RNA sequence: CACUCUGUGGUUCGCAAACCUCCCACAUUAAAAAACUAAGGAACU
Numbered sequence: 001c002a003c004u005c006u007g008u009g010g011u012u013c014g015c016a017a018a019c020c021u022c023c024c025a026c027a028u029u030a031a032a033a034a035a036c037u038a039a040g041g042a043a044c045u
Stems, first nucleotide, its partner, number of pairs: 006027005016037001
Dot-bracket structure: .....(((((.....[......))))).........]........
Rfam assigns this 45-nucleotide RNA sequence from Neisseria animaloris to the family "PreQ1 (pre queuosine) riboswitch aptamer". Rfam links the family to the GO term queuosine biosynthetic process. Rfam's curators write: This family is a bacterial riboswitch that binds to the metabolite preQ1, an intermediate in the biosynthesis of the modified nucleoside queuosine from GTP. One example of this riboswitch is located in the leader of the Bacillus subtilis ykvJKLM (queCDEF) operon which encodes four genes necessary for queuosine production. PreQ1 binding to the riboswitch aptamer is thought to induce premature transcription termination within the leader to down-regulate expression of these genes. The source organism's lineage runs through Bacteria, Pseudomonadati, Pseudomonadota, Neisseriales and Neisseria.